[Rfam]
RNA sequence: AUUACCCAUCGUGAUGUGGUUAUUGUAGUCGUAAUUACUUGAUUACACAGGGCAAUAUUUUAUUGCCCUUUAUUUUAU
Numbered sequence: 001a002u003u004a005c006c007c008a009u010c011g012u013g014a015u016g017u018g019g020u021u022a023u024u025g026u027a028g029u030c031g032u033a034a035u036u037a038c039u040u041g042a043u044u045a046c047a048c049a050g051g052g053c054a055a056u057a058u059u060u061u062a063u064u065g066c067c068c069u070u071u072a073u074u075u076u077a078u
Base pairs, nucleotide, nucleotide: 025046026045027044028043029042030041031040049069050068051067052066053065054064055063056062057061
Shown here is a 78-nucleotide RNA from Kluyvera genomosp. 3, a member of the family "ABC transporter regulator". The family's consensus secondary structure is taken from published work. For this family Rfam cites "An atlas of Hfq-bound transcripts reveals 3' UTRs as a genomic reservoir of regulatory small RNAs" (Chao et al., EMBO J, 2012). Lineage of the source: Bacteria > Pseudomonadati > Pseudomonadota > Enterobacteriaceae > Kluyvera. Rfam classes the family as a cis-regulatory element.